[Rfam]
RNA sequence: AGGCGAAGGUUCCCAGCGGAGAGGAAGCUGUCUCGAACGACACCUCUCUAACACUAAAUUCAAACUUUCGCAUAAGGAUAUCGGCCAUAUUCAACGGCGCUUCUGGAAAUUUUAAUUUUGGAUGCGUUUUGAACCCUUUGGCUAUAAUUUU
Numbered sequence: 001a002g003g004c005g006a007a008g009g010u011u012c013c014c015a016g017c018g019g020a021g022a023g024g025a026a027g028c029u030g031u032c033u034c035g036a037a038c039g040a041c042a043c044c045u046c047u048c049u050a051a052c053a054c055u056a057a058a059u060u061c062a063a064a065c066u067u068u069c070g071c072a073u074a075a076g077g078a079u080a081u082c083g084g085c086c087a088u089a090u091u092c093a094a095c096g097g098c099g100c101u102u103c104u105g106g107a108a109a110u111u112u113u114a115a116u117u118u119u120g121g122a123u124g125c126g127u128u129u130u131g132a133a134c135c136c137u138u139u140g141g142c143u144a145u146a147a148u149u150u151u
Stems, first nucleotide, its partner, number of pairs: 003071007012021001014019001026047002030041003084142004089137001096128002099125002102122005